[Rfam]
RNA: mir-16 microRNA precursor family
Organism: Pogona vitticeps
RNA sequence: GUCCUGCUCUAGCAGCACACCAAUAUUGGCAGUCCUGCUCCUGCCAGCCGCCAGUAUUCCUUGUGCUGCUCCAGGGGGGC
Numbered sequence: 001g002u003c004c005u006g007c008u009c010u011a012g013c014a015g016c017a018c019a020c021c022a023a024u025a026u027u028g029g030c031a032g033u034c035c036u037g038c039u040c041c042u043g044c045c046a047g048c049c050g051c052c053a054g055u056a057u058u059c060c061u062u063g064u065g066c067u068g069c070u071c072c073a074g075g076g077g078g079g080c
Stems, first nucleotide, its partner, number of pairs: 001080003005076001007074001010073001011070008022058008